[Rfam]
RNA sequence: GCGGGCUUGGAAUUAAGAUGCUGUGGGCCCGCAUCAGGCGCGUUCCAGCUUGCGAUCACGGGGAUCUCUACACGCAAGCAAGUAUAGCCAUCAGCACUUAAAGUAGGCCGCCGGGGACACUCACCUUAGCCCGCGCGCUCCGAAUUUUAUGUAGUGUUGAUGUCGCACGCUUUAGAGGGGUGGGCUGUGUUGAACGGCUCAGAAAGUGCGAACGCCGC
Number, nucleotide and partner (000 for none) at each position: 001g032002c031003g030004g029005g028006c027007u026008u000009g000010g000011a000012a000013u000014u000015a000016a000017g000018a000019u000020g000021c000022u000023g000024u000025g000026g007027g006028c005029c004030c003031g002032c001033a000034u000035c000036a000037g000038g000039c000040g000041c000042g000043u000044u000045c000046c000047a000048g079049c078050u077051u076052g075053c074054g000055a000056u000057c000058a000059c000060g000061g000062g000063g000064a000065u000066c000067u176068c175069u174070a173071c000072a000073c000074g053075c052076a051077a050078g049079c048080a000081a000082g000083u000084a000085u000086a000087g000088c000089c162090a161091u160092c159093a158094g157095c156096a155097c154098u153099u000100a000101a000102a000103g000104u000105a000106g000107g000108c000109c000110g000111c000112c000113g000114g000115g000116g000117a000118c000119a000120c000121u000122c000123a000124c000125c000126u000127u000128a000129g000130c000131c000132c000133g000134c000135g000136c000137g000138c000139u000140c000141c000142g000143a000144a000145u000146u000147u000148u000149a000150u000151g000152u000153a098154g097155u096156g095157u094158u093159g092160a091161u090162g089163u211164c210165g209166c208167a207168c206169g000170c000171u000172u000173u070174a069175g068176a067177g000178g000179g000180g000181u201182g200183g199184g198185c197186u196187g000188u000189g000190u000191u000192g000193a000194a000195c000196g186197g185198c184199u183200c182201a181202g000203a000204a000205a000206g168207u167208g166209c165210g164211a163212a000213c000214g000215c000216c000217g000218c000